[Rfam]
RNA sequence: GGAAGAGCAACGUCCCCGGUGGGGCGCCCGGACUUCAAAUCCGGUGGGAGGCGCCUCGCGUCUCCGGUAGGUUCGACUCCUUCCUCUUCC
Numbered sequence: 001g002g003a004a005g006a007g008c009a010a011c012g013u014c015c016c017c018g019g020u021g022g023g024g025c026g027c028c029c030g031g032a033c034u035u036c037a038a039a040u041c042c043g044g045u046g047g048g049a050g051g052c053g054c055c056u057c058g059c060g061u062c063u064c065c066g067g068u069a070g071g072u073u074c075g076a077c078u079c080c081u082u083c084c085u086c087u088u089c090c
Stems, first nucleotide, its partner, number of pairs: 001090007011026006028044005047065005069081003
Dot-bracket structure: (((((((...((((((....)))))).(((((.......)))))..(((((.........)))))...(((.......)))..)))))))
This 90-nucleotide RNA from Amaricoccus solimangrovi belongs to the Rfam family "Selenocysteine transfer RNA". It scores 71 bits against the family's covariance model. The family's consensus secondary structure is taken from published work. Lineage of the source: Bacteria > Pseudomonadati > Pseudomonadota > Alphaproteobacteria > Amaricoccus.